[Rfam]
RNA sequence: UCGUGAGGUAGAGGCGCGAUAAGUCAAGAUACAAUCGAUGAGCUAGAGAAGAGUUAUGAAACGAUUGAUGAGGGACUAUCGCCGAAGUGCAUGACGAUUUCUCAACAUCAUGUGCUGGGUCUGCAGUGAACAAUUGCAGGACUGUCUCGCUUGAGUUUCCACCUUAAGUGAGUUGUGCUAUCUCAAUU
Numbered sequence: 001u002c003g004u005g006a007g008g009u010a011g012a013g014g015c016g017c018g019a020u021a022a023g024u025c026a027a028g029a030u031a032c033a034a035u036c037g038a039u040g041a042g043c044u045a046g047a048g049a050a051g052a053g054u055u056a057u058g059a060a061a062c063g064a065u066u067g068a069u070g071a072g073g074g075a076c077u078a079u080c081g082c083c084g085a086a087g088u089g090c091a092u093g094a095c096g097a098u099u100u101c102u103c104a105a106c107a108u109c110a111u112g113u114g115c116u117g118g119g120u121c122u123g124c125a126g127u128g129a130a131c132a133a134u135u136g137c138a139g140g141a142c143u144g145u146c147u148c149g150c151u152u153g154a155g156u157u158u159c160c161a162c163c164u165u166a167a168g169u170g171a172g173u174u175g176u177g178c179u180a181u182c183u184c185a186a187u188u
Stems, first nucleotide, its partner, number of pairs: 006183006016082006023076003032067006039060001086116009096106001117143002120140008146172009

A member of the RNA family "Lysine riboswitch aptamer" from Candidatus Kurthia intestinigallinarum, 188 nucleotides long. Lineage of the source: Bacteria > Bacillati > Caryophanales > Caryophanaceae > Kurthia. The family has 47 seed sequences and 3,224 matches in Rfam 15.1. Its family is annotated with lysine biosynthetic process in the Gene Ontology.